[Rfam]
RNA sequence: AAAAAGGGUAGGUUGGCUAAAUAUGCCAUUCUUACCCGCGAUGGUGAUAACUGUGUGCUUAUCAAGACAUAUGGCUAACAAAAUUUGUGGAGCCCUGUAGGGUUGGCUCGCUUGGCCAACAACCCUCAA
Numbered sequence: 001a002a003a004a005a006g007g008g009u010a011g012g013u014u015g016g017c018u019a020a021a022u023a024u025g026c027c028a029u030u031c032u033u034a035c036c037c038g039c040g041a042u043g044g045u046g047a048u049a050a051c052u053g054u055g056u057g058c059u060u061a062u063c064a065a066g067a068c069a070u071a072u073g074g075c076u077a078a079c080a081a082a083a084u085u086u087g088u089g090g091a092g093c094c095c096u097g098u099a100g101g102g103u104u105g106g107c108u109c110g111c112u113u114g115g116c117c118a119a120c121a122a123c124c125c126u127c128a129a
Base pairs, nucleotide, nucleotide: 008079009078011076012075014028015027016026017025029050030049032047033046034045035044036043051074052073053072054071055070056069057068097127099126100125101124102123103122104121105120108118110116111115
The record is a 129-nucleotide sequence from Coffea canephora, which matches "U11 spliceosomal RNA" in Rfam. Rfam classes the family as a spliceosomal small nuclear RNA.